[Rfam]
RNA sequence: UGGGCCAGAAUCUCAGCUGGUGUAAGUCAGCAGAGCUCCACUGACAUUAUUAGUGCUCCAGUGAUUCACACCAGCUGUGAAUCUGGUCUA
Numbered sequence: 001u002g003g004g005c006c007a008g009a010a011u012c013u014c015a016g017c018u019g020g021u022g023u024a025a026g027u028c029a030g031c032a033g034a035g036c037u038c039c040a041c042u043g044a045c046a047u048u049a050u051u052a053g054u055g056c057u058c059c060a061g062u063g064a065u066u067c068a069c070a071c072c073a074g075c076u077g078u079g080a081a082u083c084u085g086g087u088c089u090a
Stems, first nucleotide, its partner, number of pairs: 001090009011080002014077010025066005042049002
Rfam assigns this 90-nucleotide sequence from Gallus gallus to the family "mir-1756 microRNA precursor family". Taxonomically the source falls in Gallus (Eukaryota, Teleostomi, Saurischia, Galliformes).